RNA sequence: GGAAUAUAAGAACCCGUCUCUUAACUUUUAACUAAAAAAGUUAAGAACCGGUUCUUAACUUUUUAGUUAAAAGUUAAGAGACGGGUUCUUAUAUACC
Numbered sequence: 001g002g003a004a005u006a007u008a009a010g011a012a013c014c015c016g017u018c019u020c021u022u023a024a025c026u027u028u029u030a031a032c033u034a035a036a037a038a039a040g041u042u043a044a045g046a047a048c049c050g051g052u053u054c055u056u057a058a059c060u061u062u063u064u065a066g067u068u069a070a071a072a073g074u075u076a077a078g079a080g081a082c083g084g085g086u087u088c089u090u091a092u093a094u095a096c097c
Stems, first nucleotide, its partner, number of pairs: 001097002004094035041058007
This 97-nucleotide sequence from Brassica oleracea belongs to the Rfam family "MIR9563 microRNA precursor family".
NCBI's taxonomy places the organism under Eukaryota, Streptophytina, Tracheophyta, Brassicaceae, Brassica oleracea.
Pairs were carried over by alignment from the consensus structure, which was predicted with RNAalifold.